[Rfam]
RNA sequence: GUAUUGCAUAAUGAACGUUUUUAAACGUACCAACCGACAUCUCAUUGCACGGUGGUUUUGAAUGUGGGUGUCUCUGCCAAAAUUAUGAGAAAU
Number, nucleotide and partner (000 for none) at each position: 001g000002u000003a000004u000005u000006g065007c064008a063009u062010a000011a000012u000013g000014a000015a028016c027017g026018u025019u024020u000021u000022u000023a000024a019025a018026c017027g016028u015029a056030c055031c054032a000033a000034c052035c051036g050037a000038c047039a046040u000041c000042u089043c000044a000045u000046u039047g038048c000049a000050c036051g035052g034053u000054g031055g030056u029057u000058u000059u000060g000061a000062a009063u008064g007065u006066g000067g078068g077069u076070g075071u000072c000073u000074c000075u070076g069077c068078c067079a000080a000081a000082a000083u000084u000085a000086u000087g000088a000089g042090a000091a000092a000093u000